[Rfam]
RNA sequence: AGAUCUUUCGCUCCUUCGACAAGAACGGAGACGGCAGCCUCACCGAGCUCGAGCUCGGUGAGGCUGCCGUCUCCGUUCUUGUCGAAGGAGCGAAAGAUC
Numbered sequence: 001a002g003a004u005c006u007u008u009c010g011c012u013c014c015u016u017c018g019a020c021a022a023g024a025a026c027g028g029a030g031a032c033g034g035c036a037g038c039c040u041c042a043c044c045g046a047g048c049u050c051g052a053g054c055u056c057g058g059u060g061a062g063g064c065u066g067c068c069g070u071c072u073c074c075g076u077u078c079u080u081g082u083c084g085a086a087g088g089a090g091c092g093a094a095a096g097a098u099c
Stems, first nucleotide, its partner, number of pairs: 002099034037064002041060002044057003048053001
The family of this 99-nucleotide sequence from Punica granatum is "MIR5534 microRNA precursor family". The match comes from Rfam's covariance-model search (79 bits). NCBI's taxonomy places the organism under Eukaryota, Embryophyta, eudicotyledons, Lythraceae, Punica. The base pairs follow the family's consensus structure, which was predicted with RNAalifold.